[Rfam]
Nucleotides: 117
Base pairs, nucleotide, nucleotide: 016032017031018030019029020028078117079116080115081114082113089112090111092109093108095106096105098103
Number, partner (000 for none) and nucleotide at each position: 001000c002000g003000c004000g005000u006000a007000u008000u009000u010000u011000g012000c013000c014000c015000a016032g017031g018030c019029g020028g021000a022000g023000c024000u025000c026000g027000a028020c029019c030018g031017c032016c033000g034000c035000u036000u037000c038000a039000a040000g041000c042000c043000a044000u045000g046000a047000a048000g049000g050000c051000g052000u053000u054000c055000g056000u057000c058000g059000a060000c061000g062000a063000g064000c065000a066000u067000c068000g069000u070000g071000c072000g073000g074000u075000u076000u077000a078117u079116g080115g081114a082113g083000u084000c085000g086000a087000g088000c089112c090111g091000a092109u093108c094000u095106g096105c097000c098103g099000g100000g101000u102000a103098c104000u105096g106095c107000c108093g109092a110000u111090c112089g113082c114081u115080c116079c117078a

Rfam assigns this 117-nucleotide RNA from Pseudomonas sp. BAY1663 to the family "ALIL pseudoknot". NCBI's taxonomy places the organism under Bacteria, Pseudomonadati, Pseudomonadota, Pseudomonadaceae, Pseudomonas. Its family is annotated with positive regulation of translational frameshifting in the Gene Ontology.